[Rfam]
RNA sequence: GCAAAUGUAGCUAAGUGGAUCAAGGCAGUGGAUUGUGAAUCCACCAUGCGCGGGUUCAAUUCCCAUCAUUCGCC
Numbered sequence: 001g002c003a004a005a006u007g008u009a010g011c012u013a014a015g016u017g018g019a020u021c022a023a024g025g026c027a028g029u030g031g032a033u034u035g036u037g038a039a040u041c042c043a044c045c046a047u048g049c050g051c052g053g054g055u056u057c058a059a060u061u062c063c064c065a066u067c068a069u070u071c072g073c074c
Stems, first nucleotide, its partner, number of pairs: 001073002004070004010026003028044005050066001052064003

This 74-nucleotide RNA sequence from Vanilla planifolia belongs to the Rfam family "tRNA". Pairs were carried over by alignment from the consensus structure, which is taken from published work. Rfam's curators write: Transfer RNA (tRNA) molecules are approximately 80 nucleotides in length. A search with the family's covariance model found it, with a score of 51 bits. It is annotated as a transfer RNA.